[Rfam]
Nucleotides: 077
Base pairs, nucleotide, nucleotide: 001025002024004023005022006021007020008019009018010017011016039046040045048077049076050075057070058069059068060067061066
Number, partner (000 for none) and nucleotide at each position: 001025c002024a003000a004023g005022c006021u007020a008019u009018c010017c011016a012000g013000u014000g015000a016011u017010g018009g019008a020007u021006a022005g023004u024002u025001g026000a027000g028000u029000c030000u031000g032000g033000c034000a035000g036000a037000a038000g039046u040045c041000a042000g043000c044000c045040g046039a047000g048077g049076u050075c051000a052000u053000a054000g055000u056000a057070g058069c059068g060067a061066c062000c063000a064000a065000g066061g067060u068059c069058g070057c071000g072000a073000a074000g075050g076049a077048c
This 77-nucleotide RNA from Limosilactobacillus mucosae belongs to the Rfam family "Group II catalytic intron D1-D4-1".
The pairing is the family consensus, mapped onto this sequence.
The organism belongs to Limosilactobacillus mucosae, within Bacteria.